Salmonella enterica Typhi npcRNA 44: a 133-nucleotide RNA from Kluyvera cryocrescens. The match comes from Rfam's covariance-model search (102 bits). NCBI's taxonomy places the organism under Bacteria, Pseudomonadati, Gammaproteobacteria, Enterobacterales, Kluyvera.
RNA sequence: CUUUAAAAAUCUGGAUCAAGCUGAAAAUUGAAACGACACACUUUGUCUGUUCUCCGUAAUAAGAACAGAUAAGCGGUGUGUUCGAGUCUCUCAAAUUUUCGCAACGCGGAAAUGUUUUACGAAACAUCUUCGG
Numbered sequence: 001c002u003u004u005a006a007a008a009a010u011c012u013g014g015a016u017c018a019a020g021c022u023g024a025a026a027a028u029u030g031a032a033a034c035g036a037c038a039c040a041c042u043u044u045g046u047c048u049g050u051u052c053u054c055c056g057u058a059a060u061a062a063g064a065a066c067a068g069a070u071a072a073g074c075g076g077u078g079u080g081u082u083c084g085a086g087u088c089u090c091u092c093a094a095a096u097u098u099u100c101g102c103a104a105c106g107c108g109g110a111a112a113u114g115u116u117u118u119a120c121g122a123a124a125c126a127u128c129u130u131c132g133g
Stems, first nucleotide, its partner, number of pairs: 020102002023100007034084003038081004043076004107132003112127003
The literature on the family includes a 2010 paper in Nucleic Acids Res by Chinni et al., "Experimental identification and characterization of 97 novel npcRNA candidates in Salmonella enterica serovar Typhi".